[Rfam]
RNA sequence: CUGGAGAGCGAUCGGCGCAGCCCGUAAGGGCCGCGUAGCCGAUCCGCCGAAGACGCAAGCCCGCAACGGGCGAAACGCUCAGGCACAAGGGACAG
Numbered sequence: 001c002u003g004g005a006g007a008g009c010g011a012u013c014g015g016c017g018c019a020g021c022c023c024g025u026a027a028g029g030g031c032c033g034c035g036u037a038g039c040c041g042a043u044c045c046g047c048c049g050a051a052g053a054c055g056c057a058a059g060c061c062c063g064c065a066a067c068g069g070g071c072g073a074a075a076c077g078c079u080c081a082g083g084c085a086c087a088a089g090g091g092a093c094a095g
Stems, first nucleotide, its partner, number of pairs: 001095003010044007046084003049080002054077002059071002
The family of this 95-nucleotide RNA from Azoarcus indigens is "Glycine riboswitch aptamer". Lineage of the source: Bacteria > Pseudomonadota > Rhodocyclales > Zoogloeaceae > Azoarcus. Clan: Glycine riboswitch clan. It scores 35 bits against the family's covariance model.